Staphylococcus sRNA sau-66: an 80-nucleotide RNA from Staphylococcus aureus. It is one of the family's seed sequences. Pairs were carried over by alignment from the consensus structure, which was predicted with mfold. Rfam classes the family as a small RNA.
RNA sequence: GCGUAUACAAGGAUAAAGCUUAUAACAGUAGUAAUUGUUACUAUCAAACGAACAACAUAUAUUCUAUUUUCAGAUAGCAA
Number, nucleotide and partner (000 for none) at each position: 001g078002c077003g000004u076005a075006u074007a000008c000009a000010a070011g069012g068013a067014u066015a065016a000017a000018g000019c000020u000021u000022a000023u040024a039025a038026c037027a036028g035029u034030a000031g000032u000033a000034a029035u028036u027037g026038u025039u024040a023041c000042u000043a000044u051045c050046a000047a000048a000049c000050g045051a044052a000053c000054a000055a000056c000057a000058u000059a000060u000061a000062u000063u000064c000065u015066a014067u013068u012069u011070u010071c000072a000073g000074a006075u005076a004077g002078c001079a000080a000